[Rfam]
RNA sequence: UGACCCUCAUGGGUCACCUAGCCAACUGACGUUGUUAGUGAAUUUAGUAUUCACAAAUUACAGCCAGUAGAACUUAUUUCUGCUGGCUUUUUUUUA
Numbered sequence: 001u002g003a004c005c006c007u008c009a010u011g012g013g014u015c016a017c018c019u020a021g022c023c024a025a026c027u028g029a030c031g032u033u034g035u036u037a038g039u040g041a042a043u044u045u046a047g048u049a050u051u052c053a054c055a056a057a058u059u060a061c062a063g064c065c066a067g068u069a070g071a072a073c074u075u076a077u078u079u080c081u082g083c084u085g086g087c088u089u090u091u092u093u094u095u096a
Stems, first nucleotide, its partner, number of pairs: 001016006032063004038054006064086008
Rfam assigns this 96-nucleotide sequence from Vibrio galatheae to the family "Qrr RNA". It scores 85 bits against the family's covariance model. From the family's description: This family represents a set of small RNAs (the Qrr RNAs) that are thought to be involved in the regulation of quorum sensing in Vibrio species. It is believed that these RNAs, guided by a protein, Hfq, can mediate the destabilisation of the quorum-sensing master regulators LuxR/HapR mRNAs. The literature on the family includes a 2015 paper in Cell by Feng et al., "A qrr noncoding RNA deploys four different regulatory mechanisms to optimize quorum-sensing dynamics". NCBI's taxonomy places the organism under Bacteria, Pseudomonadota, Gammaproteobacteria, Vibrionales, Vibrio.